[Rfam]
The record is a 94-nucleotide sequence from Rhodoferax lacus, which matches "Glycine riboswitch aptamer" in Rfam.
The organism belongs to Rhodoferax, within Bacteria.
Rfam describes the family as follows. This family represents the bacterial glycine riboswitch. Glycine riboswitches usually consist of two metabolite-binding aptamers domains with similar structures in tandem. The aptamers cooperatively bind glycine to regulate the expression of downstream genes.
RNA sequence: GCUUGGUGAUCGGGAGAGACUGUGGGCCCAGCCGCACAGCGCCGAAGGAGCAACCGCCCCGGAAACUCUCAGGCAAAAGGACCGAUCACCGCAA
Numbered sequence: 001g002c003u004u005g006g007u008g009a010u011c012g013g014g015a016g017a018g019a020c021u022g023u024g025g026g027c028c029c030a031g032c033c034g035c036a037c038a039g040c041g042c043c044g045a046a047g048g049a050g051c052a053a054c055c056g057c058c059c060c061g062g063a064a065a066c067u068c069u070c071a072g073g074c075a076a077a078a079g080g081a082c083c084g085a086u087c088a089c090c091g092c093a094a
Stems, first nucleotide, its partner, number of pairs: 006089008020039004041074003044070002048068003054062002